The record is a 272-nucleotide RNA from Oryza barthii, which matches "MIR821 microRNA precursor family" in Rfam. Lineage of the source: Eukaryota > Spermatophyta > Oryzoideae > Oryzeae > Oryza. The family has 8 seed sequences and 1,438 matches in Rfam 15.1. The match comes from Rfam's covariance-model search (260 bits). The base pairs follow the family's consensus structure, which was predicted with RNAalifold.
RNA sequence: GAUUUCAGUUGAAAAAGUCUUCAAUAACAAAGUUGUAUAACUCAUCAAGACCUAUCACUUCUAUUUUGGUCAUUUCUUCAUCCGACAAAGUGAUUCGUAAGAUUGUUCACAAAAUGUACAUCUCUUAUAUAGUAUAACUACUGUAUAAAAGAUGUACAUUUUGUGAACAAUCUUACGAAUCACUUUGUCGGAUGAAGAAAUGACCAAAAUAGAAGUGAUAGGUCUUGAUGAGUUAUACAACUUUGUUAUUGAAGACUUUUUCAGUUGAAAUC
Dot-bracket structure: .............((((((((.((.((..(((((((((((((.((((((((((.(((((((((((((.(((((((.(((((.((((((((((.(.(((((.((((((((((((.((.((((........(((((....)))))........)))).)).)))))))))))).))))).).)))))))))).))))).))))))).))))))))))))).)))))))))).)))))))))))))..)).)).)))))))).............
Numbered sequence: 001g002a003u004u005u006c007a008g009u010u011g012a013a014a015a016a017g018u019c020u021u022c023a024a025u026a027a028c029a030a031a032g033u034u035g036u037a038u039a040a041c042u043c044a045u046c047a048a049g050a051c052c053u054a055u056c057a058c059u060u061c062u063a064u065u066u067u068g069g070u071c072a073u074u075u076c077u078u079c080a081u082c083c084g085a086c087a088a089a090g091u092g093a094u095u096c097g098u099a100a101g102a103u104u105g106u107u108c109a110c111a112a113a114a115u116g117u118a119c120a121u122c123u124c125u126u127a128u129a130u131a132g133u134a135u136a137a138c139u140a141c142u143g144u145a146u147a148a149a150a151g152a153u154g155u156a157c158a159u160u161u162u163g164u165g166a167a168c169a170a171u172c173u174u175a176c177g178a179a180u181c182a183c184u185u186u187g188u189c190g191g192a193u194g195a196a197g198a199a200a201u202g203a204c205c206a207a208a209a210u211a212g213a214a215g216u217g218a219u220a221g222g223u224c225u226u227g228a229u230g231a232g233u234u235a236u237a238c239a240a241c242u243u244u245g246u247u248a249u250u251g252a253a254g255a256c257u258u259u260u261u262c263a264g265u266u267g268a269a270a271u272c
Stems, first nucleotide, its partner, number of pairs: 014259008023250002026247002030243013044229010055218013069204007077196005083190010094179001096177005102171012115158002118155004130143005